[Rfam]
RNA sequence: CGACCUCAGAGUAGGCGAGAUUACCCGCUGAAUUUAAGCAUAUUAAUAAGCGGAGGAAAAGAAACUAACAAGGAUUUCCUUAGUAGCGGCGAGCGAACAGGAAUGAGCCCAGCACUGAAUCCCGCGGUACCGCCGCUGGGAAAUGUAGUGUUCGGGAGGAUCCGUUUAUCCCGUGACGUCGAACUGCGUCCAAGUCCAUCUUGAAUGGGGCCAUUUACCCGUAGAGGGUGCCAGGCCCGUAGUGACCGGUACGCGUUUCGGGAGGAUCUCUCCUUAGAGUCGGGUUGCUUGAGAGUGCAGCCCUAAGUGGGUGGUAAACUCCAUCUAAGGCUAAAUACUACCACGAGACCGAUAGCGAACAAGUACCGUGAGGGAAAGUUGAAAAGAACUUUGAAGAGAGAGUUCAAGAGUACGUGAAACCGUUCAGGGGUAAA
Numbered sequence: 001c002g003a004c005c006u007c008a009g010a011g012u013a014g015g016c017g018a019g020a021u022u023a024c025c026c027g028c029u030g031a032a033u034u035u036a037a038g039c040a041u042a043u044u045a046a047u048a049a050g051c052g053g054a055g056g057a058a059a060a061g062a063a064a065c066u067a068a069c070a071a072g073g074a075u076u077u078c079c080u081u082a083g084u085a086g087c088g089g090c091g092a093g094c095g096a097a098c099a100g101g102a103a104u105g106a107g108c109c110c111a112g113c114a115c116u117g118a119a120u121c122c123c124g125c126g127g128u129a130c131c132g133c134c135g136c137u138g139g140g141a142a143a144u145g146u147a148g149u150g151u152u153c154g155g156g157a158g159g160a161u162c163c164g165u166u167u168a169u170c171c172c173g174u175g176a177c178g179u180c181g182a183a184c185u186g187c188g189u190c191c192a193a194g195u196c197c198a199u200c201u202u203g204a205a206u207g208g209g210g211c212c213a214u215u216u217a218c219c220c221g222u223a224g225a226g227g228g229u230g231c232c233a234g235g236c237c238c239g240u241a242g243u244g245a246c247c248g249g250u251a252c253g254c255g256u257u258u259c260g261g262g263a264g265g266a267u268c269u270c271u272c273c274u275u276a277g278a279g280u281c282g283g284g285u286u287g288c289u290u291g292a293g294a295g296u297g298c299a300g301c302c303c304u305a306a307g308u309g310g311g312u313g314g315u316a317a318a319c320u321c322c323a324u325c326u327a328a329g330g331c332u333a334a335a336u337a338c339u340a341c342c343a344c345g346a347g348a349c350c351g352a353u354a355g356c357g358a359a360c361a362a363g364u365a366c367c368g369u370g371a372g373g374g375a376a377a378g379u380u381g382a383a384a385a386g387a388a389c390u391u392u393g394a395a396g397a398g399a400g401a402g403u404u405c406a407a408g409a410g411u412a413c414g415u416g417a418a419a420c421c422g423u424u425c426a427g428g429g430g431u432a433a434a
Stems, first nucleotide, its partner, number of pairs: 024055001025053005035042002065072002076103005086094002106332004113150005119144002123140001125138004154273002156270004161266003183257001185255005191248001194246003201217001203216004220224001227237002282303007309326005366373002389400004
The record is a 434-nucleotide part of an RNA from Apis florea, which matches "Eukaryotic large subunit ribosomal RNA" in Rfam. The source organism's lineage runs through Eukaryota, Opisthokonta, Mandibulata, Aculeata and Apis. The sequence is in the family's curated seed alignment.